Background:
A member of the RNA family "ffh sRNA" from Kordiimonas lacus, 52 nucleotides long. The organism belongs to Kordiimonas, within Bacteria. Pairs were carried over by alignment from the consensus structure, which is taken from published work. A search with the family's covariance model found it, with a score of 53 bits. A reference for the family is Meyer et al. (2009), "Identification of candidate structured RNAs in the marine organism 'Candidatus Pelagibacter ubique'", BMC Genomics.
RNA sequence: GAGCUUUGGGGUGCCCACCAGUCAGCGAGUUUCGCCCACUGGUGCGAUUGGC
Number, nucleotide and partner (000 for none) at each position: 001g000002a000003g000004c000005u000006u000007u000008g000009g000010g000011g000012u000013g000014c000015c000016c044017a043018c042019c041020a040021g039022u038023c000024a000025g035026c034027g033028a032029g000030u000031u000032u028033c027034g026035c025036c000037c000038a022039c021040u020041g019042g018043u017044g016045c000046g000047a000048u000049u000050g000051g000052c000